The record is a 146-nucleotide RNA sequence from Solimonas fluminis, which matches "Group II catalytic intron D1-D4-7" in Rfam. A reference for the family is Bonen and Vogel (2001), "The ins and outs of group II introns", Trends Genet. Group II introns are found in rRNA, tRNA and mRNA of organelles in fungi, plants and protists, and also in mRNA in bacteria.

[Rfam]
RNA sequence: CCAGGGUUUCUGCACCCUGUAGCCUAAGAGCGGUGCGGGUCUGGUAACGGGCCUGUGCUGAGCGCUCUGAGAAUGUAGCUCCCUUCAGGGGGACAGUACCCCCGUGAGGGGGAUUGUGCACGCGAGAAACGCACUCGCGGCGGCGC
Numbered sequence: 001c002c003a004g005g006g007u008u009u010c011u012g013c014a015c016c017c018u019g020u021a022g023c024c025u026a027a028g029a030g031c032g033g034u035g036c037g038g039g040u041c042u043g044g045u046a047a048c049g050g051g052c053c054u055g056u057g058c059u060g061a062g063c064g065c066u067c068u069g070a071g072a073a074u075g076u077a078g079c080u081c082c083c084u085u086c087a088g089g090g091g092g093a094c095a096g097u098a099c100c101c102c103c104g105u106g107a108g109g110g111g112g113a114u115u116g117u118g119c120a121c122g123c124g125a126g127a128a129a130c131g132c133a134c135u136c137g138c139g140g141c142g143g144c145g146c
Base pairs, nucleotide, nucleotide: 002019003018004017005016006015007014027068028067029066030065031064032059033058034057035056036055037054038053039052040051041050042049043048080092081091082090083089084088093117094116095115096114102109103108121139122138123137124136125135126134
Its family is annotated with Group II intron splicing in the Gene Ontology.